RNA sequence: CGAGCCAGGUGACGACGAGAAAGAGCACGCUGGUACACACAGCCAUGGCCGCUCCCAUGAUUGCGGACCGGCGUGCUCUCUCUCGUUGUCAACCCGAC
Numbered sequence: 001c002g003a004g005c006c007a008g009g010u011g012a013c014g015a016c017g018a019g020a021a022a023g024a025g026c027a028c029g030c031u032g033g034u035a036c037a038c039a040c041a042g043c044c045a046u047g048g049c050c051g052c053u054c055c056c057a058u059g060a061u062u063g064c065g066g067a068c069c070g071g072c073g074u075g076c077u078c079u080c081u082c083u084c085g086u087u088g089u090c091a092a093c094c095c096g097a098c
Stems, first nucleotide, its partner, number of pairs: 010091005016085002020081001023078001025076010
Dot-bracket structure: .........(((((.((..(..(.((((((((((................................)))))))))).)..)..)).))))).......
The record is a 98-nucleotide sequence from Musa acuminata, which matches "MIR535 microRNA precursor family" in Rfam. The organism belongs to Musa acuminata, within Eukaryota. The family has 20 seed sequences and 544 matches in Rfam 15.1. A search with the family's covariance model found it, with a score of 64 bits. The family's consensus secondary structure was predicted with RNAalifold.